[Rfam]
RNA sequence: GAAUGAUAAGAGCAAACCCGGUGUGAGCCGGUGACGCAAAGCUAAAGGGCCUUAGGUUUGUAAGGCAGCCAGUUACCAUU
Numbered sequence: 001g002a003a004u005g006a007u008a009a010g011a012g013c014a015a016a017c018c019c020g021g022u023g024u025g026a027g028c029c030g031g032u033g034a035c036g037c038a039a040a041g042c043u044a045a046a047g048g049g050c051c052u053u054a055g056g057u058u059u060g061u062a063a064g065g066c067a068g069c070c071a072g073u074u075a076c077c078a079u080u
Base pairs, nucleotide, nucleotide: 012037013036018031019030020029021028022027040074041073042072043071047070048069049066050065051064052063053062054061